[Rfam]
RNA sequence: UUCCAUUGUUCAGUCAGGGAUCCUUCCGGCGCUAUGUCGUCCAUUUCAAUGGAAUGAUCUCGUUACGACUUUGGAAGAUCGACUUCUCCUCGCAGCUCUCGGGAGCGCUAGUCGGCGGCUUGUUUUGAGUCCCGGCGCCUAGAGGGGACGAUGUACCGUUUGAGUAGAGUAGGGACAGUGCCGGUUUGCCGGUACGCCGUGCCACUACUCGUAGUAACGCUACAUACAUUA
Numbered sequence: 001u002u003c004c005a006u007u008g009u010u011c012a013g014u015c016a017g018g019g020a021u022c023c024u025u026c027c028g029g030c031g032c033u034a035u036g037u038c039g040u041c042c043a044u045u046u047c048a049a050u051g052g053a054a055u056g057a058u059c060u061c062g063u064u065a066c067g068a069c070u071u072u073g074g075a076a077g078a079u080c081g082a083c084u085u086c087u088c089c090u091c092g093c094a095g096c097u098c099u100c101g102g103g104a105g106c107g108c109u110a111g112u113c114g115g116c117g118g119c120u121u122g123u124u125u126u127g128a129g130u131c132c133c134g135g136c137g138c139c140u141a142g143a144g145g146g147g148a149c150g151a152u153g154u155a156c157c158g159u160u161u162g163a164g165u166a167g168a169g170u171a172g173g174g175a176c177a178g179u180g181c182c183g184g185u186u187u188g189c190c191g192g193u194a195c196g197c198c199g200u201g202c203c204a205c206u207a208c209u210c211g212u213a214g215u216a217a218c219g220c221u222a223c224a225u226a227c228a229u230u231a
Base pairs, nucleotide, nucleotide: 003074004073005072017061018060019059020058021057022056024054025053026052028041029040030039031038087148088147089146090145091144095106096105097104098103111136112135113134114133115132117131118130119129120128121127122126151225152224153223154222157219158218159217167210168209169208170207173203174202176201178195179194180193181192182191183190184189